A member of the RNA family "mir-2 microRNA precursor family" from Ceutorhynchus assimilis, 69 nucleotides long. The literature on the family includes a 2001 paper in Cell by Ambros, "microRNAs: tiny regulators with great potential". It scores 50 bits against the family's covariance model. Its family is annotated with miRNA-mediated post-transcriptional gene silencing and RISC complex in the Gene Ontology.
[Rfam]
RNA sequence: GUGCUCAUCAACUGGACGUGAAAUGUUAGUUUUCAAUAUUCAUAUCACAGCCAGCUUUGAUGAGCGUGA
Dot-bracket structure: ....(((((((.(((..((((..(((...............)))))))..)))...)))))))......